[Rfam]
RNA: MIR403 microRNA precursor family
Organism: Acer saccharum
RNA sequence: ACAGAUCGCGAGUUUGUGCGUGAAUCUAACGCCAUCGGAUGAGGUAGGGACUAGGGAUAUGAGAGAGGAAAACGAACGGCUAGGAUGGGGUUAGAUUCACGCAUAAACUAGAGAUAUGUCC
Dot-bracket structure: (((.(((...((((((((((((((((.(((.(((((...............................................))))).))).))))))))))))))))...))).)))..
Numbered sequence: 001a002c003a004g005a006u007c008g009c010g011a012g013u014u015u016g017u018g019c020g021u022g023a024a025u026c027u028a029a030c031g032c033c034a035u036c037g038g039a040u041g042a043g044g045u046a047g048g049g050a051c052u053a054g055g056g057a058u059a060u061g062a063g064a065g066a067g068g069a070a071a072a073c074g075a076a077c078g079g080c081u082a083g084g085a086u087g088g089g090g091u092u093a094g095a096u097u098c099a100c101g102c103a104u105a106a107a108c109u110a111g112a113g114a115u116a117u118g119u120c121c
Stems, first nucleotide, its partner, number of pairs: 001119003005115003011109016028092003032088005